[Rfam]
RNA sequence: AAAUGAUACUAGCACACUUAUUGAAAAGUAAGGCCGCAAAGCUAUGAGUCUAAGGGAAAGUUUGUUUUCUACGAUUGUCAGGUUGCCAAA
Numbered sequence: 001a002a003a004u005g006a007u008a009c010u011a012g013c014a015c016a017c018u019u020a021u022u023g024a025a026a027a028g029u030a031a032g033g034c035c036g037c038a039a040a041g042c043u044a045u046g047a048g049u050c051u052a053a054g055g056g057a058a059a060g061u062u063u064g065u066u067u068u069c070u071a072c073g074a075u076u077g078u079c080a081g082g083u084u085g086c087c088a089a090a
Base pairs, nucleotide, nucleotide: 012037013036017032018031019030020029021028022027040084041083042082043081045080046079047078048075049074050073055069056068057067058066
c-di-GMP-I riboswitch aptamer: a 90-nucleotide RNA sequence from Clostridium chromiireducens. The match comes from Rfam's covariance-model search (69 bits).